[Rfam]
This 45-nucleotide sequence from Mycolicibacterium smegmatis belongs to the Rfam family "Mycobacterium sRNA Ms_AS-5".
It is annotated as a small RNA.
RNA sequence: AUCGGGGUAGUGGCCGGUGAACAUGGUCGGCCGGCUCGGCACACA
Numbered sequence: 001a002u003c004g005g006g007g008u009a010g011u012g013g014c015c016g017g018u019g020a021a022c023a024u025g026g027u028c029g030g031c032c033g034g035c036u037c038g039g040c041a042c043a044c045a
Stems, first nucleotide, its partner, number of pairs: 012032007
On this family, see Li et al., RNA 2013: "Identification of small RNAs in Mycobacterium smegmatis using heterologous Hfq". NCBI's taxonomy places the organism under Bacteria, Actinomycetota, Mycobacteriaceae, Mycobacterium (subgen. Mycolicibacterium), Mycolicibacterium smegmatis. The sequence is in the family's curated seed alignment. Pairs were carried over by alignment from the consensus structure.